This 161-nucleotide RNA from Capra hircus belongs to the Rfam family "U1 spliceosomal RNA". The organism belongs to Capra, within Eukaryota.

RNA sequence: AUACUUGCCUGGCAGGGGAGAUACCUACAUGAAGGUGGUUUUUCCAGUGUACAGACCAUCUAUUGUACUCCGGAUACGCUGACCCUUGCCAUUUCCCCAAAUGUGGGAAACUUUGCUGCAUAAUUUGUGGUAGCGGGGGACUGUGUUCACUUUUUCCCCUG
Numbered sequence: 001a002u003a004c005u006u007g008c009c010u011g012g013c014a015g016g017g018g019a020g021a022u023a024c025c026u027a028c029a030u031g032a033a034g035g036u037g038g039u040u041u042u043u044c045c046a047g048u049g050u051a052c053a054g055a056c057c058a059u060c061u062a063u064u065g066u067a068c069u070c071c072g073g074a075u076a077c078g079c080u081g082a083c084c085c086u087u088g089c090c091a092u093u094u095c096c097c098c099a100a101a102u103g104u105g106g107g108a109a110a111c112u113u114u115g116c117u118g119c120a121u122a123a124u125u126u127g128u129g130g131u132a133g134c135g136g137g138g139g140a141c142u143g144u145g146u147u148c149a150c151u152u153u154u155u156c157c158c159c160u161g
Stems, first nucleotide, its partner, number of pairs: 012119004016045006023039003046087002049084001053080002058075004091112001092110003096106002135160006143152001145150001
The family's consensus secondary structure is taken from published work. U1 is a small nuclear RNA (snRNA) component of the spliceosome (involved in pre-mRNA splicing). Its 5' end forms complementary base pairs with the 5' splice junction, thus defining the 5' donor site of an intron. There are significant differences in sequence and secondary structure between metazoan and yeast U1 snRNAs, the latter being much longer (568 nucleotides as compared to 164 nucleotides in human). On this family, see Katsamba et al., J Biol Chem 2001: "Two functionally distinct steps mediate high affinity binding of U1A protein to U1 hairpin II RNA".